Shown here is a 133-nucleotide RNA sequence from Halalkalibacter krulwichiae, a member of the family "Ribosomal protein L10 leader". The organism belongs to Halalkalibacter, within Bacteria. Rfam links the family to the GO term regulation of gene expression. Pairs were carried over by alignment from the consensus structure, which was predicted with CMfinder.
[Rfam]
RNA sequence: AUUAAAUUGAAUGUCAUACCGUAGACAGUAGGUGUGGAUCUAAACACUUAAUUUCCUACCGAGGUAAGCGAUAGAUACAGUGAACUGUAACUCUAUGCCCUCAUGUCUACAUGAGGGCUUUUUAUAUGCUUCU
Numbered sequence: 001a002u003u004a005a006a007u008u009g010a011a012u013g014u015c016a017u018a019c020c021g022u023a024g025a026c027a028g029u030a031g032g033u034g035u036g037g038a039u040c041u042a043a044a045c046a047c048u049u050a051a052u053u054u055c056c057u058a059c060c061g062a063g064g065u066a067a068g069c070g071a072u073a074g075a076u077a078c079a080g081u082g083a084a085c086u087g088u089a090a091c092u093c094u095a096u097g098c099c100c101u102c103a104u105g106u107c108u109a110c111a112u113g114a115g116g117g118c119u120u121u122u123u124a125u126a127u128g129c130u131u132c133u
Stems, first nucleotide, its partner, number of pairs: 028059005034047003097118009